[Rfam]
RNA sequence: UGACGGGGACCCGCACAAGCAGCGGAGCAUGUGGUUUAAUUCGAAGCAACGCGAAGAACCUUACCAGGGCUUGACAUCCUGCUGACAGAACCUUAAUCGGUUUUUUCUUCGGACAGCAGAGACAGGUGGUGCAUGGUUGUCGUCAGCUCGUGUCGUGAGAUGUUGGGUUAAGUCCCGCAACGAGCGCAACCCUUGUCGCUAGUUACUAACAUUCAGUUGAGGACUCUAGCGAGACUGCCGAGGUCAACUCGGAGGAAGGUGGGGAUGACGUCAAAUCAUCAUGCCCCUUAUGUUCUGGGCUACACACGUGCUACAAUGGUCGGUACAAUGAGAUGCAAUACUGCGAAGUGGAGCGAAACACCAAAACCGAUCCCAGUUCGGAUUGUAGGCUGCAACUCGCCUACAUGAAGUCGGAGUUGCUAGUAAUCGCAGAUCAGAAUGCUGCGGUGAAUGCGUUCCCGGGUCUUGUACACACCGCCCGUCACACCAUGGAAGUUGGGGGUGCCCAAAGUCGGUUAAUUAAUCUAUCGCCUAAGGCAAAACCAAUGACUGGGGUGAAGUCGUAACAAGGUAGCCGUUCGAGAACGAGCGGCUGGAUCA
Numbered sequence: 001u002g003a004c005g006g007g008g009a010c011c012c013g014c015a016c017a018a019g020c021a022g023c024g025g026a027g028c029a030u031g032u033g034g035u036u037u038a039a040u041u042c043g044a045a046g047c048a049a050c051g052c053g054a055a056g057a058a059c060c061u062u063a064c065c066a067g068g069g070c071u072u073g074a075c076a077u078c079c080u081g082c083u084g085a086c087a088g089a090a091c092c093u094u095a096a097u098c099g100g101u102u103u104u105u106u107c108u109u110c111g112g113a114c115a116g117c118a119g120a121g122a123c124a125g126g127u128g129g130u131g132c133a134u135g136g137u138u139g140u141c142g143u144c145a146g147c148u149c150g151u152g153u154c155g156u157g158a159g160a161u162g163u164u165g166g167g168u169u170a171a172g173u174c175c176c177g178c179a180a181c182g183a184g185c186g187c188a189a190c191c192c193u194u195g196u197c198g199c200u201a202g203u204u205a206c207u208a209a210c211a212u213u214c215a216g217u218u219g220a221g222g223a224c225u226c227u228a229g230c231g232a233g234a235c236u237g238c239c240g241a242g243g244u245c246a247a248c249u250c251g252g253a254g255g256a257a258g259g260u261g262g263g264g265a266u267g268a269c270g271u272c273a274a275a276u277c278a279u280c281a282u283g284c285c286c287c288u289u290a291u292g293u294u295c296u297g298g299g300c301u302a303c304a305c306a307c308g309u310g311c312u313a314c315a316a317u318g319g320u321c322g323g324u325a326c327a328a329u330g331a332g333a334u335g336c337a338a339u340a341c342u343g344c345g346a347a348g349u350g351g352a353g354c355g356a357a358a359c360a361c362c363a364a365a366a367c368c369g370a371u372c373c374c375a376g377u378u379c380g381g382a383u384u385g386u387a388g389g390c391u392g393c394a395a396c397u398c399g400c401c402u403a404c405a406u407g408a409a410g411u412c413g414g415a416g417u418u419g420c421u422a423g424u425a426a427u428c429g430c431a432g433a434u435c436a437g438a439a440u441g442c443u444g445c446g447g448u449g450a451a452u453g454c455g456u457u458c459c460c461g462g463g464u465c466u467u468g469u470a471c472a473c474a475c476c477g478c479c480c481g482u483c484a485c486a487c488c489a490u491g492g493a494a495g496u497u498g499g500g501g502g503u504g505c506c507c508a509a510a511g512u513c514g515g516u517u518a519a520u521u522a523a524u525c526u527a528u529c530g531c532c533u534a535a536g537g538c539a540a541a542a543c544c545a546a547u548g549a550c551u552g553g554g555g556u557g558a559a560g561u562c563g564u565a566a567c568a569a570g571g572u573a574g575c576c577g578u579u580c581g582a583g584a585a586c587g588a589g590c591g592g593c594u595g596g597a598u599c600a
Stems, first nucleotide, its partner, number of pairs: 001472002003469003007466007015456002019420005024314001026312008034303002040055004064298007077122002079119005087104006106113002125287002128285004134281002136276003139272001141270002146185006152161003164177004191264004196232007206221002210219002235255002238252005318372007330361001332359001335354002340349003379410001384405007426448007475570001477567001480563002485557004490552003495547005503539004511532001513530004519524001572595010
RNA: Bacterial small subunit ribosomal RNA, nucleotides 910 to 1509
Organism: Mogibacterium sp. CM50